The record is a 377-nucleotide part of an RNA from Entamoeba invadens, which matches "Eukaryotic large subunit ribosomal RNA" in Rfam.

RNA sequence: UAGAAGAACGUAGGUAAGGGAAGUCGGCAAAACAGCUCUGUAAGUUAGCGAGAAAGAGUAGCUCUGAUGAAGACCAGUAAUGGUAAGAAUUUUGAUCAGAACUUUUAAGAUUAGGGGAAUCCGACUGUUUAAUAAAAACAUAGCAUUGUGAGAAAUAGGAAAUGUUCAUAACACAAUGUGAUUUCUGCCCAGUGCUCUGAAUGUCAAGGUAAUGAAAUUUACUUAAGCGCGGGUUAACGGCGGGAGUAACUAUGACUCUCUUAAGGUAGCCAAAUGCCUCGUCAUCUAAUUAGUGACGCGCAUGAAUGGAUCACCGUGAUUCCCACUGUCCCUAUCUACAAUCUAGUGAAACCACAGUCAAGGGAACGGGCUUGAUG
Numbered sequence: 001u002a003g004a005a006g007a008a009c010g011u012a013g014g015u016a017a018g019g020g021a022a023g024u025c026g027g028c029a030a031a032a033c034a035g036c037u038c039u040g041u042a043a044g045u046u047a048g049c050g051a052g053a054a055a056g057a058g059u060a061g062c063u064c065u066g067a068u069g070a071a072g073a074c075c076a077g078u079a080a081u082g083g084u085a086a087g088a089a090u091u092u093u094g095a096u097c098a099g100a101a102c103u104u105u106u107a108a109g110a111u112u113a114g115g116g117g118a119a120u121c122c123g124a125c126u127g128u129u130u131a132a133u134a135a136a137a138a139c140a141u142a143g144c145a146u147u148g149u150g151a152g153a154a155a156u157a158g159g160a161a162a163u164g165u166u167c168a169u170a171a172c173a174c175a176a177u178g179u180g181a182u183u184u185c186u187g188c189c190c191a192g193u194g195c196u197c198u199g200a201a202u203g204u205c206a207a208g209g210u211a212a213u214g215a216a217a218u219u220u221a222c223u224u225a226a227g228c229g230c231g232g233g234u235u236a237a238c239g240g241c242g243g244g245a246g247u248a249a250c251u252a253u254g255a256c257u258c259u260c261u262u263a264a265g266g267u268a269g270c271c272a273a274a275u276g277c278c279u280c281g282u283c284a285u286c287u288a289a290u291u292a293g294u295g296a297c298g299c300g301c302a303u304g305a306a307u308g309g310a311u312c313a314c315c316g317u318g319a320u321u322c323c324c325a326c327u328g329u330c331c332c333u334a335u336c337u338a339c340a341a342u343c344u345a346g347u348g349a350a351a352c353c354a355c356a357g358u359c360a361a362g363g364g365a366a367c368g369g370g371c372u373u374g375a376u377g
Stems, first nucleotide, its partner, number of pairs: 001345004010339007018331003035059005044049001060103002063100006069093004078085002104108001115324007122316002126140003143179008154166004183310003187241003192238002194234004199230001202229003209222004242260006261265001281297005358375005
The family's consensus secondary structure is taken from published work.